[Rfam]
RNA: Small nucleolar RNA ZL1
RNA sequence: GGAGAGGCAAAGUGAUGAGCAAUACUUGCUGGAGCCCCAAAGAGGCACAUGUUUGUGUGAGUGUAUAUGUGUGUUUGAGAGAGAGAUCACUGUUUGUGCACAUGUGUGUCUGGGAGUAUGGAUGACUGUGACAUAUUGUAGGGACCUAGCUAGCUAUGUGCCUUCUGUUGGGCUAUGACAGUCAAACUGAUAAGAUCUGAUUGCUUC
Numbered sequence: 001g002g003a004g005a006g007g008c009a010a011a012g013u014g015a016u017g018a019g020c021a022a023u024a025c026u027u028g029c030u031g032g033a034g035c036c037c038c039a040a041a042g043a044g045g046c047a048c049a050u051g052u053u054u055g056u057g058u059g060a061g062u063g064u065a066u067a068u069g070u071g072u073g074u075u076u077g078a079g080a081g082a083g084a085g086a087u088c089a090c091u092g093u094u095u096g097u098g099c100a101c102a103u104g105u106g107u108g109u110c111u112g113g114g115a116g117u118a119u120g121g122a123u124g125a126c127u128g129u130g131a132c133a134u135a136u137u138g139u140a141g142g143g144a145c146c147u148a149g150c151u152a153g154c155u156a157u158g159u160g161c162c163u164u165c166u167g168u169u170g171g172g173c174u175a176u177g178a179c180a181g182u183c184a185a186a187c188u189g190a191u192a193a194g195a196u197c198u199g200a201u202u203g204c205u206u207c
Base pairs, nucleotide, nucleotide: 004207005206006205007204008203009202010201014197015196016195026184028182029181030180031179036114037113038112039111041109043107045105046104047103050100051099052098054096055095060091061090062089063088116129117128118127132153136149137148155177156176157175158174160173161172162171163170